This 219-nucleotide RNA sequence from Nannocystis pusilla belongs to the Rfam family "Group II catalytic intron D1-D4-6". The source organism's lineage runs through Bacteria, Polyangia, Nannocystales, Nannocystaceae and Nannocystis. From the family's description: Group II introns are found in rRNA, tRNA and mRNA of organelles in fungi, plants and protists, and also in mRNA in bacteria.

Nucleotides: 219
Stems, first nucleotide, its partner, number of pairs: 012035005019029002038085002042082004046077002048072004055066004108210006129204006135161003140155004166198008
Number, partner (000 for none) and nucleotide at each position: 001000c002000c003000u004000g005000c006000c007000c008000u009000c010000g011000u012035c013034c014033g015032g016031c017000a018000a019029g020028g021000c022000c023000g024000a025000g026000u027000c028020c029019c030000g031016g032015c033014c034013g035012g036000a037000a038085c039084c040000g041000a042082g043081u044080g045079u046077u047076g048072c049071g050070c051069g052000g053000g054000a055066u056065c057064c058063g059000g060000a061000g062000a063058c064057g065056g066055a067000a068000a069051c070050g071049c072048g073000a074000a075000g076047c077046g078000u079045a080044c081043a082042c083000a084039g085038g086000g087000a088000g089000c090000a091000c092000g093000u094000g095000g096000g097000c098000c099000g100000u101000g102000g103000a104000a105000u106000c107000a108210g109209c110208c111207u112206c113205g114000a115000a116000a117000g118000g119000u120000u121000c122000a123000g124000a125000a126000g127000u128000c129204g130203a131202g132201g133200a134199g135161g136160c137159c138000g139000a140155c141154g142153c143152u144000c145000u146000a147000c148000a149000u150000g151000c152143g153142g154141c155140g156000g157000a158000a159137g160136g161135c162000a163000a164000c165000a166198u167197c168196c169195u170194c171193g172192g173191g174000c175000u176000g177000a178000a179000g180000g181000c182000u183000c184000g185000g186000u187000c188000g189000u190000u191173c192172c193171c194170g195169a196168g197167g198166a199134c200133u201132c202131c203130u204129c205113c206112g207111g208110g209109g210108u211000c212000g213000u214000g215000g216000a217000a218000c219000a